[Rfam]
RNA sequence: GUUGCGGCAGACUCUAAUUCGCUUGGUGCAGGUCGGGAACUACUUCGCUGGCGGCGGCGAUUGAUUCUGAUUGAUUCGGGGGGUGAAUCGGGUCCCGCCUUGCAUCAACUGAAUUGGAGACUGCCGUGAAC
Dot-bracket structure: ............((..((((..((((((((((.(((((.((................................................)).))))).))))))))))..))))..)).............
About this RNA: Rfam assigns this 131-nucleotide RNA sequence from Camellia sinensis to the family "MIR168 microRNA precursor family". The match comes from Rfam's covariance-model search (102 bits). Gene Ontology terms of the family: miRNA-mediated post-transcriptional gene silencing and RISC complex.